Source information
Rfam assigns this 133-nucleotide RNA from Streptacidiphilus fuscans to the family "SAM (S-adenosyl methionine) riboswitch aptamer". Rfam links the family to the GO terms regulation of gene expression and S-adenosylmethionine metabolic process. Clan: SAM clan. A reference for the family is Weinberg et al. (2008), "The aptamer core of SAM-IV riboswitches mimics the ligand-binding site of SAM-I riboswitches", RNA. It scores 90 bits against the family's covariance model.

RNA sequence: GGUCACGAGUGACAGCACGCGGCGUCAGCCGCUGAAGCCCCGGCUCGCUGUCCGGCAACCCUCCUACCGUGGUGGGGUGCCUCCGGGUGACGACCAGGCCUGCGGCGAGAACGCCGCGAGGCAAGCGCGGAUC
Numbered sequence: 001g002g003u004c005a006c007g008a009g010u011g012a013c014a015g016c017a018c019g020c021g022g023c024g025u026c027a028g029c030c031g032c033u034g035a036a037g038c039c040c041c042g043g044c045u046c047g048c049u050g051u052c053c054g055g056c057a058a059c060c061c062u063c064c065u066a067c068c069g070u071g072g073u074g075g076g077g078u079g080c081c082u083c084c085g086g087g088u089g090a091c092g093a094c095c096a097g098g099c100c101u102g103c104g105g106c107g108a109g110a111a112c113g114c115c116g117c118g119a120g121g122c123a124a125g126c127g128c129g130g131a132u133c
Stems, first nucleotide, its partner, number of pairs: 001095004009053001011052006021045002054081003059077003063072002098122004102117006